[Rfam]
RNA sequence: UUUAAAAAUUAUAUCAAUGCUCAUAUAUGCCCGAGAUAUGGUCGGGUGUCUCUACGGCUAGCCUUAAAUUAGCCACUAUGAGUGAAGGUCUUUAUUUU
Numbered sequence: 001u002u003u004a005a006a007a008a009u010u011a012u013a014u015c016a017a018u019g020c021u022c023a024u025a026u027a028u029g030c031c032c033g034a035g036a037u038a039u040g041g042u043c044g045g046g047u048g049u050c051u052c053u054a055c056g057g058c059u060a061g062c063c064u065u066a067a068a069u070u071a072g073c074c075a076c077u078a079u080g081a082g083u084g085a086a087g088g089u090c091u092u093u094a095u096u097u098u
Stems, first nucleotide, its partner, number of pairs: 018084008029047006056074006